[Rfam]
RNA sequence: GGGCCGAUUCACUUUAAGAUUGAAUACCAGCUCUGUAUGUAAAUAGUUUGGUGUUCUACCUUACAGUGAAUCGACCA
Numbered sequence: 001g002g003g004c005c006g007a008u009u010c011a012c013u014u015u016a017a018g019a020u021u022g023a024a025u026a027c028c029a030g031c032u033c034u035g036u037a038u039g040u041a042a043a044u045a046g047u048u049u050g051g052u053g054u055u056c057u058a059c060c061u062u063a064c065a066g067u068g069a070a071u072c073g074a075c076c077a
Base pairs, nucleotide, nucleotide: 006072007071008070009069010068011067012066013065015063016062017061025053026052027051028050029049030048032046

Source information
This 77-nucleotide RNA from Eufriesea mexicana belongs to the Rfam family "mir-971 microRNA precursor family". The family has 6 seed sequences and 118 matches in Rfam 15.1. The family's consensus secondary structure was predicted with RNAalifold.